The record is an 84-nucleotide RNA sequence from Poseidonibacter parvus, which matches "tRNA" in Rfam. The source organism's lineage runs through Bacteria, Pseudomonadati, Epsilonproteobacteria, Campylobacterales and Poseidonibacter. A search with the family's covariance model found it, with a score of 63 bits. It is annotated as a transfer RNA.
RNA sequence: GCGAGUGUGGCGGAAUAGGUAGACGCGUUGGACUUAAAAUCCAAUUCCGGUUUCGGAGUGUCGGUUCAAUUCCGACCAUUCGCA
Numbered sequence: 001g002c003g004a005g006u007g008u009g010g011c012g013g014a015a016u017a018g019g020u021a022g023a024c025g026c027g028u029u030g031g032a033c034u035u036a037a038a039a040u041c042c043a044a045u046u047c048c049g050g051u052u053u054c055g056g057a058g059u060g061u062c063g064g065u066u067c068a069a070u071u072c073c074g075a076c077c078a079u080u081c082g083c084a
Base pairs, nucleotide, nucleotide: 001083002082003081004080005079006078007077010026011025012024028044029043030042031041032040060076061075062074063073064072
Dot-bracket structure: (((((((..(((...........))).(((((.......)))))...............(((((.......)))))))))))).